[Rfam]
A member of the RNA family "Small nucleolar RNA snoR99" from Lupinus albus, 102 nucleotides long. The family's consensus secondary structure was predicted with WAR. It scores 43 bits against the family's covariance model.
RNA sequence: GUGCUUAUUGGGUUAUACUUGGUCCCUAUAUUAAUCUCCAUCUUUAACUUUAUCAGCUGUGGAUUAUUUUACUUACAGUUGAUUUUCUAAGUUGGUAUAUUU
Numbered sequence: 001g002u003g004c005u006u007a008u009u010g011g012g013u014u015a016u017a018c019u020u021g022g023u024c025c026c027u028a029u030a031u032u033a034a035u036c037u038c039c040a041u042c043u044u045u046a047a048c049u050u051u052a053u054c055a056g057c058u059g060u061g062g063a064u065u066a067u068u069u070u071a072c073u074u075a076c077a078g079u080u081g082a083u084u085u086u087c088u089a090a091g092u093u094g095g096u097a098u099a100u101u102u
Stems, first nucleotide, its partner, number of pairs: 038095003042091001052083008